[Rfam]
A member of the RNA family "sodF sRNA" from Streptomyces nodosus, 89 nucleotides long.
NCBI's taxonomy places the organism under Bacteria, Bacillati, Actinomycetota, Kitasatosporales, Streptomyces.
A search with the family's covariance model found it, with a score of 86 bits.

RNA sequence: GCGUCCUGCUCGUGAUCGUCUUCUCACCCUUCACGUGGCAGGCGGAAAAAGGGGCGGCCCCGCGAGGACCAGACUCGCGGGGCCGUUCC
Numbered sequence: 001g002c003g004u005c006c007u008g009c010u011c012g013u014g015a016u017c018g019u020c021u022u023c024u025c026a027c028c029c030u031u032c033a034c035g036u037g038g039c040a041g042g043c044g045g046a047a048a049a050a051g052g053g054g055c056g057g058c059c060c061c062g063c064g065a066g067g068a069c070c071a072g073a074c075u076c077g078c079g080g081g082g083c084c085g086u087u088c089c
Base pairs, nucleotide, nucleotide: 002044003043005042006041007040008039009038010037012034013033014032015031018028051089052088053087054086055085056084057083058082059081060080061079062078063077064076065075066074